[Rfam]
RNA sequence: AUCACUUCUUAGUCAUCUUAGGCUGAAGUCAAAUGUAGUAUCUGUUCUAGAAGAGUUUAAUCACCCUUCAGCUUUCUUUAUGAAAGUGAUAAAAAGAUUUGCAAUUUAUUUUGAGGGGCUAUGGCAAUUACUUGAUAACUGCUUGCUUUUAUCAUACGCCAUAACCUGUAUCUGCUCUGAAUUGCACUAUGUCAGAGUGAAAAAGGUACAACUCUA
Numbered sequence: 001a002u003c004a005c006u007u008c009u010u011a012g013u014c015a016u017c018u019u020a021g022g023c024u025g026a027a028g029u030c031a032a033a034u035g036u037a038g039u040a041u042c043u044g045u046u047c048u049a050g051a052a053g054a055g056u057u058u059a060a061u062c063a064c065c066c067u068u069c070a071g072c073u074u075u076c077u078u079u080a081u082g083a084a085a086g087u088g089a090u091a092a093a094a095a096g097a098u099u100u101g102c103a104a105u106u107u108a109u110u111u112u113g114a115g116g117g118g119c120u121a122u123g124g125c126a127a128u129u130a131c132u133u134g135a136u137a138a139c140u141g142c143u144u145g146c147u148u149u150u151a152u153c154a155u156a157c158g159c160c161a162u163a164a165c166c167u168g169u170a171u172c173u174g175c176u177c178u179g180a181a182u183u184g185c186a187c188u189a190u191g192u193c194a195g196a197g198u199g200a201a202a203a204a205g206g207u208a209c210a211a212c213u214c215u216a
Stems, first nucleotide, its partner, number of pairs: 007028001009026001011024004050069004055064001071087006118165001120163006168209006175197006
RNA: U2 spliceosomal RNA
Organism: Polysphondylium violaceum